RNA sequence: CAUUAGGUUGGUGCAAAAGUCUUUGUGGUUUUUGCCAUUGCUUUUAAUGGCAAAAACCUCAAUGACUUUUGCACCAACCUAAUG
Dot-bracket structure: (((((((((((((((((((((.(((.((((((((((((((....)))))))))))))).))).)))))))))))))))))))))

mir-548 microRNA precursor family: an 84-nucleotide sequence from Theropithecus gelada. It scores 94 bits against the family's covariance model. NCBI's taxonomy places the organism under Eukaryota, Tetrapoda, Boreoeutheria, Euarchontoglires, Theropithecus. The family's consensus secondary structure was predicted with WAR. The family has 11 seed sequences and 3,009 matches in Rfam 15.1.